[Rfam]
RNA sequence: GUUCAUUGCUAGGGGUCUAUAUUUUAAAUUAAUUUAAAUAUAGUGAGAAACACCCUUUGAACCUGACGCGGGUUAUGCCGCCGUAGGAAAGCAUGCAAUGUGUCGC
Dot-bracket structure: ......((((((((.(((((((((...........))))))))......)..)))).....((((..((((......))))..))))..)))).............

Background: A member of the RNA family "TPP riboswitch aptamer (THI element)" from Methylotenera versatilis, 106 nucleotides long. Rfam describes the family as follows. Vitamin B(1) in its active form thiamin pyrophosphate (TPP) is an essential coenzyme that is synthesised by coupling of pyrimidine and thiazole moieties in bacteria.